[Rfam]
This 52-nucleotide RNA from Sulfitobacter donghicola belongs to the Rfam family "ffh sRNA". It is annotated as a small RNA. The source organism's lineage runs through Bacteria, Pseudomonadota, Alphaproteobacteria, Rhodobacterales and Sulfitobacter donghicola.
RNA sequence: AUCAUUCAGGAUCGCCCCCAGUCAGCGUGUUACGCCCACUGGGGCAUUUGUG
Number, nucleotide and partner (000 for none) at each position: 001a000002u000003c000004a000005u000006u000007c000008a000009g000010g000011a000012u000013c000014g000015c000016c044017c043018c042019c041020a040021g039022u038023c000024a000025g035026c034027g033028u032029g000030u000031u000032a028033c027034g026035c025036c000037c000038a022039c021040u020041g019042g018043g017044g016045c000046a000047u000048u000049u000050g000051u000052g000